[Rfam]
RNA: DUF3800-VIII RNA
RNA sequence: ACGGCCCUGUAAAAGCGAAGUCCCAAGUUCCACUUAGGAUACGCCAUAUGGCAUAGCUGAUACAGGGUUAA
Numbered sequence: 001a002c003g004g005c006c007c008u009g010u011a012a013a014a015g016c017g018a019a020g021u022c023c024c025a026a027g028u029u030c031c032a033c034u035u036a037g038g039a040u041a042c043g044c045c046a047u048a049u050g051g052c053a054u055a056g057c058u059g060a061u062a063c064a065g066g067g068u069u070a071a
Base pairs, nucleotide, nucleotide: 003069004068005067006066007065008064009063010062011061014058015057016056020040021039022038023037025035026034027033028032